[Rfam]
RNA sequence: CCCUUAUUUUUUAAAAGUUUCAAGUUGGCCCCUUAUCUUUAUUUUAGGUUCAAAUUGGUCUCUUCUGUCAAUUUUUUUACUAUCACCGUUAAAUUUAGACACAUGUCAUCUGUCCAAGUGUGUCACGUGUCCAAAAUUAGUUUGCCACAUGUCCAAAUUGAACGGUAAUAGAAAAAAUUUUGACUGAAGGGACCAACUUGAAACCUAAAAUAAAGAUAAGGGAUCAACUUGAAACUUUUAAAAGAUAAGAGA
Numbered sequence: 001c002c003c004u005u006a007u008u009u010u011u012u013a014a015a016a017g018u019u020u021c022a023a024g025u026u027g028g029c030c031c032c033u034u035a036u037c038u039u040u041a042u043u044u045u046a047g048g049u050u051c052a053a054a055u056u057g058g059u060c061u062c063u064u065c066u067g068u069c070a071a072u073u074u075u076u077u078u079a080c081u082a083u084c085a086c087c088g089u090u091a092a093a094u095u096u097a098g099a100c101a102c103a104u105g106u107c108a109u110c111u112g113u114c115c116a117a118g119u120g121u122g123u124c125a126c127g128u129g130u131c132c133a134a135a136a137u138u139a140g141u142u143u144g145c146c147a148c149a150u151g152u153c154c155a156a157a158u159u160g161a162a163c164g165g166u167a168a169u170a171g172a173a174a175a176a177a178u179u180u181u182g183a184c185u186g187a188a189g190g191g192a193c194c195a196a197c198u199u200g201a202a203a204c205c206u207a208a209a210a211u212a213a214a215g216a217u218a219a220g221g222g223a224u225c226a227a228c229u230u231g232a233a234a235c236u237u238u239u240a241a242a243a244g245a246u247a248a249g250a251g252a
Base pairs, nucleotide, nucleotide: 003249004248005247006246007245008244023229024228025227027225028224031221032220033219034218035217036216037215038214039213040212041211042210043209045207046206047205
Overview:
A member of the RNA family "MIR2655 microRNA precursor family" from Trifolium subterraneum, 252 nucleotides long. Pairs were carried over by alignment from the consensus structure, which was predicted with RNAalifold. A search with the family's covariance model found it, with a score of 122 bits.